Description: Proteo-phage-1 RNA: a 78-nucleotide sequence from Corticimicrobacter populi. Taxonomically the source falls in Corticimicrobacter (Bacteria, Pseudomonadati, Pseudomonadota, Burkholderiales).

RNA sequence: CCGUGGCCAGGGCGGCCCCGUAAGGGAUAUGCCUGGACGCGUAGGCCGGUAGAGCGCGCAUGUACAUCACCGGCAGUC
Dot-bracket structure: [[[[..(((((]]]].(((....))).....))))).[[[[...(((((.....]]]]...........)))))....
The base pairs follow the family's consensus structure, which is taken from published work.
Rfam classes the family as a small RNA.